This 108-nucleotide sequence from Lupinus albus belongs to the Rfam family "MIR396 microRNA precursor family". NCBI's taxonomy places the organism under Eukaryota, Tracheophyta, Magnoliopsida, Fabales, Lupinus. The family's consensus secondary structure was predicted with WAR. Rfam 15.1 lists 744 matches to the family in 207 species. A reference for the family is Xie et al. (2005), "Expression of Arabidopsis MIRNA genes", Plant Physiol.
RNA sequence: CUUUGUAUUCUUCCACAGCUUUCUUGAACUGCAGCAUCUAAAAGGUUCCUUUGCAUGCAUACCAUACCUUGUCUUGCGGUUCAAUAAAGCUGUGGGAAGAUACAGAUA
Numbered sequence: 001c002u003u004u005g006u007a008u009u010c011u012u013c014c015a016c017a018g019c020u021u022u023c024u025u026g027a028a029c030u031g032c033a034g035c036a037u038c039u040a041a042a043a044g045g046u047u048c049c050u051u052u053g054c055a056u057g058c059a060u061a062c063c064a065u066a067c068c069u070u071g072u073c074u075u076g077c078g079g080u081u082c083a084a085u086a087a088a089g090c091u092g093u094g095g096g097a098a099g100a101u102a103c104a105g106a107u108a
Base pairs, nucleotide, nucleotide: 003105004104005103006102007101013095014094015093017091018090019089020088021087022086024084025083026082027081029079030078031077032076033075